[Rfam]
RNA sequence: CCAAAGGCUCUUUUCAGAGCCACUUCAAUUCUCAUCCAAAGAGUUGU
Numbered sequence: 001c002c003a004a005a006g007g008c009u010c011u012u013u014u015c016a017g018a019g020c021c022a023c024u025u026c027a028a029u030u031c032u033c034a035u036c037c038a039a040a041g042a043g044u045u046g047u
Stems, first nucleotide, its partner, number of pairs: 006021006
RNA: Histone 3' UTR stem-loop
Organism: Suricata suricatta